[Rfam]
RNA sequence: GCUGGAAUUGCGCGGCGUGUAGUUGAUGAACACGAAGCCGCGGCACUGGUCGAUCGCAUGAAACAGCGGGUUCCAGUCGAACAUCGCCACCAUGUAGCCGGGCAGGGUGUUGGCCACGAACAUCUUGCCGGACGCGAUCAUGUUGGCGCGCUG
Dot-bracket structure: ..((...((...(((.......)))...))..))..((.(((((....)))).).))......(((((.((((.....))))...((((.((((...(...(((((((.(((....)))..)))))).)....)....)))).)))).)))))
This 153-nucleotide sequence from Pseudooceanicola atlanticus belongs to the Rfam family "Ruegeria cis2 sRNA". The source organism's lineage runs through Bacteria, Pseudomonadota, Alphaproteobacteria, Paracoccaceae and Pseudooceanicola. A search with the family's covariance model found it, with a score of 116 bits. A reference for the family is Rivers et al. (2016), "Experimental Identification of Small Non-Coding RNAs in the Model Marine Bacterium Ruegeria pomeroyi DSS-3", Front Microbiol.